[Rfam]
RNA sequence: UGAUUCCAGUGCCGAAAGUCAGCAUCCACGACGUGCUCGCACGGGAGUGGAUGCUGGACUUUAUGGCACGCCCCCUUCAUGAGCAUGCAGCGAUGCGAAGCAGCGCGGGAAUGCGAAUGAAGGUAGCAUGGCGCGAGCUGCACCGCAGCGAAGCCAUGCGGGAAUCA
Numbered sequence: 001u002g003a004u005u006c007c008a009g010u011g012c013c014g015a016a017a018g019u020c021a022g023c024a025u026c027c028a029c030g031a032c033g034u035g036c037u038c039g040c041a042c043g044g045g046a047g048u049g050g051a052u053g054c055u056g057g058a059c060u061u062u063a064u065g066g067c068a069c070g071c072c073c074c075c076u077u078c079a080u081g082a083g084c085a086u087g088c089a090g091c092g093a094u095g096c097g098a099a100g101c102a103g104c105g106c107g108g109g110a111a112u113g114c115g116a117a118u119g120a121a122g123g124u125a126g127c128a129u130g131g132c133g134c135g136a137g138c139u140g141c142a143c144c145g146c147a148g149c150g151a152a153g154c155c156a157u158g159c160g161g162g163a164a165u166c167a
Stems, first nucleotide, its partner, number of pairs: 001167007010068004016061004020056010032043004074123007083114004090106003094102003126159007137149004
RNA: Clostridiales-1 RNA